[Rfam]
RNA sequence: AAGCAUCUAUCUGACAGACCUGGAACAGGUCUGCUCAACUGUCUGCUGCUCAGAUGCUACAGAAAGUGUCCUUGGGCUUUCUGUCUGUCCAAUUGUGGCAGCCAAGAUUGAAUAAGGGAAUAAAUAU
Numbered sequence: 001a002a003g004c005a006u007c008u009a010u011c012u013g014a015c016a017g018a019c020c021u022g023g024a025a026c027a028g029g030u031c032u033g034c035u036c037a038a039c040u041g042u043c044u045g046c047u048g049c050u051c052a053g054a055u056g057c058u059a060c061a062g063a064a065a066g067u068g069u070c071c072u073u074g075g076g077c078u079u080u081c082u083g084u085c086u087g088u089c090c091a092a093u094u095g096u097g098g099c100a101g102c103c104a105a106g107a108u109u110g111a112a113u114a115a116g117g118g119a120a121u122a123a124a125u126a127u
Stems, first nucleotide, its partner, number of pairs: 002058007011048001013046001015045005023036002026033002069119005077110001080107003085101005
RNA: Small nucleolar RNA SNORA31
Organism: Equus asinus